[Rfam]
The record is a 126-nucleotide RNA sequence from Phyllostomus discolor, which matches "U4atac minor spliceosomal RNA" in Rfam. Rfam classes the family as a spliceosomal small nuclear RNA. It scores 107 bits against the family's covariance model.
RNA sequence: ACCUUCCUUUCCUUGGGGUUGCGCUGCUGCCCAAUGAGCGUGCAGUGAGGGCAGUACUGCCGACACCGGAACGACACACUCGCAUCGGCUAGAGCUCUGCUUUACCUUGGUGCAAUUUUUGGAAAA
Numbered sequence: 001a002c003c004u005u006c007c008u009u010u011c012c013u014u015g016g017g018g019u020u021g022c023g024c025u026g027c028u029g030c031c032c033a034a035u036g037a038g039c040g041u042g043c044a045g046u047g048a049g050g051g052c053a054g055u056a057c058u059g060c061c062g063a064c065a066c067c068g069g070a071a072c073g074a075c076a077c078a079c080u081c082g083c084a085u086c087g088g089c090u091a092g093a094g095c096u097c098u099g100c101u102u103u104a105c106c107u108u109g110g111u112g113c114a115a116u117u118u119u120u121g122g123a124a125a126a
Stems, first nucleotide, its partner, number of pairs: 006018004021060003026055007038046002082113006090104006
Pairs were carried over by alignment from the consensus structure, which is taken from published work. The organism belongs to Phyllostomus, within Eukaryota. On this family, see Shukla et al., Nucleic Acids Res 2002: "Domains of human U4atac snRNA required for U12-dependent splicing in vivo".